[Rfam]
RNA: Plastid-clpP 5UTR RNA
RNA sequence: AAUUUUCUUUGUAGGAACAAAAGAAAGCAGAUCUAUUCCACACCCGAUAAGUACCAAUACGCAAUGGUA
Numbered sequence: 001a002a003u004u005u006u007c008u009u010u011g012u013a014g015g016a017a018c019a020a021a022a023g024a025a026a027g028c029a030g031a032u033c034u035a036u037u038c039c040a041c042a043c044c045c046g047a048u049a050a051g052u053a054c055c056a057a058u059a060c061g062c063a064a065u066g067g068u069a
Stems, first nucleotide, its partner, number of pairs: 003022002006019001008017003044067002051060003